[Rfam]
RNA sequence: GACCUAACCCCUGCGAUCUAAAAGUCCCAGGAUAUGGUCCAAAAACCCCGCUAGAGAACAAAGGACUCCUCGUCAGAGUCACUCUAGCGGGUCAUACCUGGAAACGGGGAUGGGUGGAGCCGAAAGGUUCCAUC
Number, nucleotide and partner (000 for none) at each position: 001g039002a038003c037004c036005u000006a000007a000008c000009c000010c031011c030012u029013g028014c000015g026016a025017u024018c000019u000020a000021a000022a000023a000024g017025u016026c015027c000028c013029a012030g011031g010032a000033u000034a000035u000036g004037g003038u002039c001040c000041a000042a000043a000044a000045a000046c000047c091048c090049c089050g088051c087052u086053a085054g084055a083056g082057a000058a000059c000060a000061a000062a000063g000064g080065a079066c078067u077068c000069c000070u000071c000072g000073u000074c000075a000076g000077a067078g066079u065080c064081a000082c056083u055084c054085u053086a052087g051088c050089g049090g048091g047092u000093c112094a111095u110096a000097c108098c107099u106100g105101g000102a000103a000104a000105c100106g099107g098108g097109g000110a095111u094112g093113g134114g133115u132116g131117g130118a129119g128120c127121c126122g000123a000124a000125a000126g121127g120128u119129u118130c117131c116132a115133u114134c113